[Rfam]
RNA sequence: GCAAAAGUCAGGACUAGACAUACUAUCCAUCGAUUCAGUCCUUACCUUACGCCCUCACUGAUUUCCUGCCGUGAGGGC
Numbered sequence: 001g002c003a004a005a006a007g008u009c010a011g012g013a014c015u016a017g018a019c020a021u022a023c024u025a026u027c028c029a030u031c032g033a034u035u036c037a038g039u040c041c042u043u044a045c046c047u048u049a050c051g052c053c054c055u056c057a058c059u060g061a062u063u064u065c066c067u068g069c070c071g072u073g074a075g076g077g078c
Stems, first nucleotide, its partner, number of pairs: 010042006017036002051078008060069001